[Rfam]
RNA sequence: GUCCCGAUAGUAUAAAAAUUACUCUGGUCUUGUAAACCAAAAAUGAAGAGUCAGCUCUUCUCGGGACA
Numbered sequence: 001g002u003c004c005c006g007a008u009a010g011u012a013u014a015a016a017a018a019u020u021a022c023u024c025u026g027g028u029c030u031u032g033u034a035a036a037c038c039a040a041a042a043a044u045g046a047a048g049a050g051u052c053a054g055c056u057c058u059u060c061u062c063g064g065g066a067c068a
Base pairs, nucleotide, nucleotide: 001067002066003065004064005063006062007061010022011021012020025039026038027037028036045060046059047058048057049056
Record summary:
This 68-nucleotide RNA sequence belongs to the Rfam family "tRNA". The base pairs follow the family's consensus structure, which is taken from published work. It is one of the family's seed sequences. Rfam's curators write: Transfer RNA (tRNA) molecules are approximately 80 nucleotides in length.